Source information: This 219-nucleotide sequence from Ruminococcus sp. AM42-11 belongs to the Rfam family "Lysine riboswitch aptamer". The organism belongs to Ruminococcus, within Bacteria.

[Rfam]
RNA sequence: AGUUAUGAUAGAGGCGCAGGCUUCAUCAGUAAUUUCAGCUGCAGAGACUGGUUGUGUGCAGAGUAUGGGCAUAUGCAGAUACAGGCUCUGGGUCGUAUGGCAGACUGGCUGGAAUGAAAGGGGAGACUGCCGAAGGAUUUUUUCUCAGCCAGGAGAGAAGUUCUGGGCUGACGCAGAAUAUGCGGCAGACUGUCACUGUUGUGGAGCGCUAUCUAAGGU
Numbered sequence: 001a002g003u004u005a006u007g008a009u010a011g012a013g014g015c016g017c018a019g020g021c022u023u024c025a026u027c028a029g030u031a032a033u034u035u036c037a038g039c040u041g042c043a044g045a046g047a048c049u050g051g052u053u054g055u056g057u058g059c060a061g062a063g064u065a066u067g068g069g070c071a072u073a074u075g076c077a078g079a080u081a082c083a084g085g086c087u088c089u090g091g092g093u094c095g096u097a098u099g100g101c102a103g104a105c106u107g108g109c110u111g112g113a114a115u116g117a118a119a120g121g122g123g124a125g126a127c128u129g130c131c132g133a134a135g136g137a138u139u140u141u142u143u144c145u146c147a148g149c150c151a152g153g154a155g156a157g158a159a160g161u162u163c164u165g166g167g168c169u170g171a172c173g174c175a176g177a178a179u180a181u182g183c184g185g186c187a188g189a190c191u192g193u194c195a196c197u198g199u200u201g202u203g204g205a206g207c208g209c210u211a212u213c214u215a216a217g218g219u
Stems, first nucleotide, its partner, number of pairs: 007213005016130004021125004032115010134164010145153001165191002168188003172184004193204004
Description: Rfam links the family to the GO term lysine biosynthetic process.